[Rfam]
RNA sequence: UCACUGGCCAACGGUGGGGUCUGAAGGAAGCCAUAGGAAGAUAGAUGUACACAACUAACCGUAACCUGUUUCGGCGACAUAGGUGGGUAAGCGUCCGAAAUAGCGCGAAGCCCAAUACUUAGUCAGACCUAUGCUGUGCUUGAGGGUGGCAUAUCUAUCAGGGAGUCAGU
Numbered sequence: 001u002c003a004c005u006g007g008c009c010a011a012c013g014g015u016g017g018g019g020u021c022u023g024a025a026g027g028a029a030g031c032c033a034u035a036g037g038a039a040g041a042u043a044g045a046u047g048u049a050c051a052c053a054a055c056u057a058a059c060c061g062u063a064a065c066c067u068g069u070u071u072c073g074g075c076g077a078c079a080u081a082g083g084u085g086g087g088u089a090a091g092c093g094u095c096c097g098a099a100a101u102a103g104c105g106c107g108a109a110g111c112c113c114a115a116u117a118c119u120u121a122g123u124c125a126g127a128c129c130u131a132u133g134c135u136g137u138g139c140u141u142g143a144g145g146g147u148g149g150c151a152u153a154u155c156u157a158u159c160a161g162g163g164a165g166u167c168a169g170u
Base pairs, nucleotide, nucleotide: 001017002016003015004014005013006012037167038166042161044159045158046157047156050148051147052146065145066144067143074137075136076135078133079132080131081130082129083128084127085113086112087111088110091106092105093104094103